Annotation:
The family of this 309-nucleotide sequence from Dipodomys ordii is "7SK RNA". About the family: 7SK was discovered as an abundant small nuclear RNA in the mid-70s but a possible function has only recently been suggested. Two independent studies have found that 7SK RNA binds the CDK9/cyclin T complex (known as elongation factor P-TEFb). The family's consensus secondary structure is taken from published work. Rfam classes the family as a non-coding RNA gene. The literature on the family includes a 2002 paper in Curr Biol by Blencowe, "Transcription: surprising role for an elusive small nuclear RNA". Taxonomically the source falls in Dipodomys (Eukaryota, Metazoa, Deuterostomia, Euarchontoglires).
RNA sequence: GGAUGUGAGGGCGAUCUGGCUGCGACAUCUGUCACCCCAUUGAUCGCCAGGGUUGAUUCGGCUGAUCUGGCUGGCUAGGCGGGUGUCCCCUUCCUCCCUCACCGCUCCAUGUGCGUCCCUCCCGAAGCUGCGUGCUCGGUUGAAGAGGACGACCAUCCCCGAUAGAGGAGGACCGGUCUUCGGUCAAGGGUAUACGAGUAGCUGCGCUCCCCUGCUAGAACCUCCAAACAAGCUCUAAAAUCAGUGGGCUGGGAAGGUGGCUCAGUGGUAGAGCACUUGCCUUGCAUGCAUGAGGCCCUGGGUUCCAUU
Numbered sequence: 001g002g003a004u005g006u007g008a009g010g011g012c013g014a015u016c017u018g019g020c021u022g023c024g025a026c027a028u029c030u031g032u033c034a035c036c037c038c039a040u041u042g043a044u045c046g047c048c049a050g051g052g053u054u055g056a057u058u059c060g061g062c063u064g065a066u067c068u069g070g071c072u073g074g075c076u077a078g079g080c081g082g083g084u085g086u087c088c089c090c091u092u093c094c095u096c097c098c099u100c101a102c103c104g105c106u107c108c109a110u111g112u113g114c115g116u117c118c119c120u121c122c123c124g125a126a127g128c129u130g131c132g133u134g135c136u137c138g139g140u141u142g143a144a145g146a147g148g149a150c151g152a153c154c155a156u157c158c159c160c161g162a163u164a165g166a167g168g169a170g171g172a173c174c175g176g177u178c179u180u181c182g183g184u185c186a187a188g189g190g191u192a193u194a195c196g197a198g199u200a201g202c203u204g205c206g207c208u209c210c211c212c213u214g215c216u217a218g219a220a221c222c223u224c225c226a227a228a229c230a231a232g233c234u235c236u237a238a239a240a241u242c243a244g245u246g247g248g249c250u251g252g253g254a255a256g257g258u259g260g261c262u263c264a265g266u267g268g269u270a271g272a273g274c275a276c277u278u279g280c281c282u283u284g285c286a287u288g289c290a291u292g293a294g295g296c297c298c299u300g301g302g303u304u305c306c307a308u309u
Base pairs, nucleotide, nucleotide: 001108002107003106005102006101007100008099009098010097011096013093014092018090019089024087025086026085027084028083029082030081031080032079033078035074036073037070038069039068042067043066044065045064046062047061048060116171117170118168119167120166121165122139123138124137125136127135128134140162141161142160147158148157149156201261202260203259207256208255210253211252212251214249215248224247225246299307300306301305